Shown here is a 108-nucleotide RNA from Paenibacillus rigui, a member of the family "c-di-GMP-I riboswitch aptamer". Rfam links the family to the GO term cyclic-di-GMP binding. It scores 69 bits against the family's covariance model.
RNA sequence: AAUCGACAAUAGCAUACUUAUCGAAAGGUAAGGACGCAAAGCUACGGGUCUAACGUUGAAUGAGUCUUAAGUCUAUUCUGAUUCAGCUAUGAUCGCCGGGUUGCCGUG
Numbered sequence: 001a002a003u004c005g006a007c008a009a010u011a012g013c014a015u016a017c018u019u020a021u022c023g024a025a026a027g028g029u030a031a032g033g034a035c036g037c038a039a040a041g042c043u044a045c046g047g048g049u050c051u052a053a054c055g056u057u058g059a060a061u062g063a064g065u066c067u068u069a070a071g072u073c074u075a076u077u078c079u080g081a082u083u084c085a086g087c088u089a090u091g092a093u094c095g096c097c098g099g100g101u102u103g104c105c106g107u108g
Base pairs, nucleotide, nucleotide: 012037013036017032018031019030020029021028022027040102041101042100043099045098046097047096048093049092050091055087056086057085058084059083060082061081
Dot-bracket structure: ...........((...((((((....))))))...))..((((.((((((....(((((((...................)))))))...)))..)))))))......